[Rfam]
Record summary:
This 178-nucleotide RNA from Mastigocoleus testarum belongs to the Rfam family "Antisense RNA which regulates isiA expression". Lineage of the source: Bacteria > Cyanobacteriota > Cyanophyceae > Hapalosiphonaceae > Mastigocoleus testarum. The literature on the family includes a 2006 paper in Proc Natl Acad Sci U S A by Duhring et al., "An internal antisense RNA regulates expression of the photosynthesis gene isiA".
RNA sequence: AAUAACCGAAGAUAAUUUUUGGAUCCAGAGUAGGAUUAUCAAUUAAACGCACUUCUGCAAUAUUCGCAUCAUAAAUUCCCCCAAAGAACAUUGCCUUUGCAACUAAGAGCAAUGCUCCAAACCCUAAAAUGAUUAAGUGAUGACCCAAGAUAAAGCCUAACUUCUUCGGGUCGUACCA
Number, nucleotide and partner (000 for none) at each position: 001a000002a000003u000004a000005a000006c000007c000008g000009a000010a000011g000012a000013u000014a000015a000016u000017u000018u000019u000020u000021g000022g000023a000024u000025c000026c000027a000028g000029a000030g000031u000032a000033g000034g000035a000036u000037u000038a000039u000040c000041a000042a000043u000044u000045a000046a000047a000048c000049g000050c000051a000052c000053u000054u000055c000056u000057g000058c000059a000060a000061u000062a000063u000064u000065c000066g000067c000068a000069u000070c000071a000072u000073a000074a000075a000076u000077u000078c000079c000080c000081c000082c000083a000084a000085a000086g000087a000088a000089c000090a000091u000092u000093g000094c000095c000096u000097u000098u000099g000100c000101a000102a000103c000104u000105a000106a000107g000108a000109g000110c000111a000112a000113u000114g000115c000116u000117c000118c000119a000120a000121a000122c000123c000124c000125u000126a000127a000128a000129a000130u000131g000132a000133u000134u000135a000136a000137g174138u173139g172140a171141u170142g000143a000144c169145c168146c000147a166148a165149g000150a000151u000152a000153a000154a000155g000156c000157c000158u000159a000160a000161c000162u000163u000164c000165u148166u147167c000168g145169g144170g141171u140172c139173g138174u137175a000176c000177c000178a000
A search with the family's covariance model found it, with a score of 131 bits.
Pairs were carried over by alignment from the consensus structure, which was predicted with PFOLD.